U1A polyadenylation inhibition element (PIE): a 74-nucleotide RNA sequence from Nannospalax galili. A reference for the family is Clerte and Hall (2004), "Global and Local Dynamics of the U1A Polyadenylation Inhibition Element (PIE) RNA and PIE RNA-U1A Complexes", Biochemistry. The base pairs follow the family's consensus structure, which is taken from published work. Rfam describes the family as follows. This family represents the U1A polyadenylation inhibition element (PIE). PIE is a regulatory RNA which is responsible for the regulation of the length of the polyA tail of the U1A pre-mRNA. The PIE is located in the U1A mRNA 3' UTR. PIE adopts a U-shaped structure, with binding sites for a single U1A protein at each bend and when complexed with the two proteins it blocks activity of poly(A) polymerase (PAP), and inhibits its activity. The source organism's lineage runs through Eukaryota, Mammalia, Myomorpha, Muroidea and Nannospalax. Rfam links the family to the GO term regulation of mRNA polyadenylation.
RNA sequence: CAACACAACAUUGUACCCAGAGUCUGAGCUCAGACAUUGCACCUGGCACUAUUAGGUUGUAAUUAAAGUGCUUU
Numbered sequence: 001c002a003a004c005a006c007a008a009c010a011u012u013g014u015a016c017c018c019a020g021a022g023u024c025u026g027a028g029c030u031c032a033g034a035c036a037u038u039g040c041a042c043c044u045g046g047c048a049c050u051a052u053u054a055g056g057u058u059g060u061a062a063u064u065a066a067a068g069u070g071c072u073u074u
Stems, first nucleotide, its partner, number of pairs: 005052001007050001017046004022035005